[Rfam]
RNA sequence: GGGUUCAUUCCAUUUUUUUAUACAAUGAAAUCACGGCCGAGAAAAGAACAGAAGAUUCUUUCUGACUCUCUCUCUCUCCUCUCUGCCGUGUUUCUUUGUAUAAAGAGAUGUACUGGACCC
Numbered sequence: 001g002g003g004u005u006c007a008u009u010c011c012a013u014u015u016u017u018u019u020a021u022a023c024a025a026u027g028a029a030a031u032c033a034c035g036g037c038c039g040a041g042a043a044a045a046g047a048a049c050a051g052a053a054g055a056u057u058c059u060u061u062c063u064g065a066c067u068c069u070c071u072c073u074c075u076c077u078c079c080u081c082u083c084u085g086c087c088g089u090g091u092u093u094c095u096u097u098g099u100a101u102a103a104a105g106a107g108a109u110g111u112a113c114u115g116g117a118c119c120c
Stems, first nucleotide, its partner, number of pairs: 001120007011110003016105010027094004032090006039083003
Shown here is a 120-nucleotide RNA sequence from Prunus persica, a member of the family "MIR1509 microRNA precursor family".
Its family is annotated with miRNA-mediated post-transcriptional gene silencing and RISC complex in the Gene Ontology.
It is one of the family's seed sequences.
Rfam 15.1 lists 42 matches to the family in 23 species.